[Rfam]
RNA: Small nucleolar RNA SNORD42
RNA sequence: GUGCAGAUGAUGUAGACUUUGAUUUACUGAGUAAUGUGAUGCUUCCAAAGGAACCACUGAUGCAC
Numbered sequence: 001g002u003g004c005a006g007a008u009g010a011u012g013u014a015g016a017c018u019u020u021g022a023u024u025u026a027c028u029g030a031g032u033a034a035u036g037u038g039a040u041g042c043u044u045c046c047a048a049a050g051g052a053a054c055c056a057c058u059g060a061u062g063c064a065c
Base pairs, nucleotide, nucleotide: 001065002064003063004062005061